[Rfam]
Nucleotides: 185
Base pairs, nucleotide, nucleotide: 002108003107004106005103006102007101008045009044010043011042012041015037016036017035019032020031021030022029048099049098050097051096059090060089061086063084064083065082066079117177119176120175121174122173123172132164133163134162135161136160137159141151142150143149144148
Number, partner (000 for none) and nucleotide at each position: 001000c002108c003107a004106a005103c006102g007101u008045g009044g010043a011042u012041a013000c014000u015037c016036c017035u018000g019032g020031g021030a022029g023000g024000u025000c026000a027000g028000u029022c030021u031020c032019c033000c034000u035017g036016g037015g038000c039000u040000c041012u042011g043010u044009c045008c046000a047000g048099g049098u050097g051096g052000g053000g054000u055000a056000g057000a058000a059090g060089a061086g062000c063084a064083u065082a066079g067000g068000g069000c070000u071000c072000u073000g074000c075000c076000c077000c078000a079066u080000g081000a082065u083064g084063u085000a086061c087000a088000g089060u090059c091000c092000a093000u094000u095000u096051c097050c098049a099048c100000c101007a102006c103005g104000c105000c106004u107003u108002g109000a110000g111000u112000c113000u114000g115000c116000a117177c118000c119176u120175g121174c122173a123172u124000u125000c126000c127000u128000a129000c130000a131000g132164c133163u134162u135161c136160u137159c138000a139000g140000g141151g142150u143149u144148c145000u146000g147000u148144g149143g150142a151141c152000a153000g154000u155000g156000a157000c158000a159137g160136a161135g162134g163133a164132g165000a166000c167000a168000a169000a170000c171000c172123a173122u174121g175120u176119g177117g178000a179000a180000a181000c182000a183000g184000c185000u